[Rfam]
The record is a 71-nucleotide RNA from Aquimarina spongiae, which matches "DUF805 RNA" in Rfam. The family's RNA type in Rfam is cis-regulatory element.
RNA sequence: UAUUUGUGGAGCUCAGAAACCACUUAAAAACAACGAGGCGCAAUCCGAAAAGCCAAAAGAGUAGGAAGUAA
Numbered sequence: 001u002a003u004u005u006g007u008g009g010a011g012c013u014c015a016g017a018a019a020c021c022a023c024u025u026a027a028a029a030a031c032a033a034c035g036a037g038g039c040g041c042a043a044u045c046c047g048a049a050a051a052g053c054c055a056a057a058a059g060a061g062u063a064g065g066a067a068g069u070a071a
Stems, first nucleotide, its partner, number of pairs: 006023004037054003044065002
Dot-bracket structure: .....((((..........)))).............(((....[[......))).........]]......
The organism belongs to Aquimarina, within Bacteria.